[Rfam]
RNA sequence: GUUGUGAUUUGCUUUCAAACAACGAUCUUUGAAUUAUUGGAAACAAC
Numbered sequence: 001g002u003u004g005u006g007a008u009u010u011g012c013u014u015u016c017a018a019a020c021a022a023c024g025a026u027c028u029u030u031g032a033a034u035u036a037u038u039g040g041a042a043a044c045a046a047c
Stems, first nucleotide, its partner, number of pairs: 014033006
Description
Shown here is a 47-nucleotide RNA from Sporocytophaga myxococcoides, a member of the family "CRISPR RNA direct repeat element". The family has 3 seed sequences and 404 matches in Rfam 15.1. The base pairs follow the family's consensus structure, which was predicted with WAR. A search with the family's covariance model found it, with a score of 52 bits.